[Rfam]
Nucleotides: 125
Stems, first nucleotide, its partner, number of pairs: 003123008017029003031105002033094002035048004043092002052069002074090005096108003
Number, partner (000 for none) and nucleotide at each position: 001000c002000u003123u004122u005121g006120u007119c008118u009117u010116c011000a012000g013000g014000g015000c016000g017029g018028g019027g020000u021000g022000u023000g024000a025000u026000u027019c028018c029017c030000c031105a032104c033094u034093g035048g036047c037046g038045g039000u040000a041000a042000a043092g044091u045038c046037c047036g048035c049000g050000a051000c052069c053068g054000g055000a056000u057000a058000c059000u060000u061000c062000g063000g064000u065000g066000u067000c068053c069052g070000c071000u072000g073000a074090c075089u076088c077087g078086g079000u080000g081000a082000a083000a084000c085000u086078c087077c088076g089075g090074g091044a092043c093034c094033a095000a096108c097107a098106g099000u100000u101000a102000c103000a104032g105031u106098c107097u108096g109000g110000a111000u112000g113000g114000a115000a116010g117009a118008a119007g120006a121005u122004g123003a124000g125000u

The family of this 125-nucleotide RNA sequence from Dysosmobacter segnis is "FMN riboswitch aptamer (RFN element)".
A search with the family's covariance model found it, with a score of 112 bits.
Taxonomically the source falls in Dysosmobacter (Bacteria, Bacillota, Clostridia, Eubacteriales).